Source information:
The record is a 77-nucleotide sequence from Rynchops niger, which matches "Small nucleolar RNA SNORD47" in Rfam. Its family is annotated with nucleolus and RNA processing in the Gene Ontology.

RNA sequence: AGCCACUGAUGAAACUCGAUUCUGCCAAAUGAAUCACUGUGAUAUAUCCAUUUCCGUUCCACUUUUUCUCUGAGGUU
Numbered sequence: 001a002g003c004c005a006c007u008g009a010u011g012a013a014a015c016u017c018g019a020u021u022c023u024g025c026c027a028a029a030u031g032a033a034u035c036a037c038u039g040u041g042a043u044a045u046a047u048c049c050a051u052u053u054c055c056g057u058u059c060c061a062c063u064u065u066u067u068c069u070c071u072g073a074g075g076u077u
Stems, first nucleotide, its partner, number of pairs: 001077004